[Rfam]
RNA sequence: GGUCAUGAGUGUCAGCGACAAGCCCCGGCUAGCUGAUCGGCAACCCUCCAACCGCGGUGGGGUGCUCCGGGUGAUGACCGGGUUGUGGUGGCACACACCACGGCAAGCGCGGGUC
Numbered sequence: 001g002g003u004c005a006u007g008a009g010u011g012u013c014a015g016c017g018a019c020a021a022g023c024c025c026c027g028g029c030u031a032g033c034u035g036a037u038c039g040g041c042a043a044c045c046c047u048c049c050a051a052c053c054g055c056g057g058u059g060g061g062g063u064g065c066u067c068c069g070g071g072u073g074a075u076g077a078c079c080g081g082g083u084u085g086u087g088g089u090g091g092c093a094c095a096c097a098c099c100a101c102g103g104c105a106a107g108c109g110c111g112g113g114u115c
Stems, first nucleotide, its partner, number of pairs: 001079004009038001011037006021030002039066003044062003048057002082104009

Overview: A member of the RNA family "SAM (S-adenosyl methionine) riboswitch aptamer" from Williamsia sterculiae, 115 nucleotides long. Pairs were carried over by alignment from the consensus structure, which is taken from published work. A search with the family's covariance model found it, with a score of 113 bits. A reference for the family is Weinberg et al. (2008), "The aptamer core of SAM-IV riboswitches mimics the ligand-binding site of SAM-I riboswitches", RNA. Lineage of the source: Bacteria > Actinomycetota > Actinomycetes > Nocardiaceae > Williamsia. The family is grouped with related families in Rfam's "SAM clan". About the family: SAM-IV is a mRNA element that regulates gene expression via direct sensing of S-adenosylmethionine (SAM or AdoMet). SAM-IV riboswitches share conserved nucleotide positions with the previously described SAM-I riboswitches sequence analysis and molecular recognition experiments suggest that SAM-I and SAM-IV riboswitches share similar ligand binding sites, but have different scaffolds.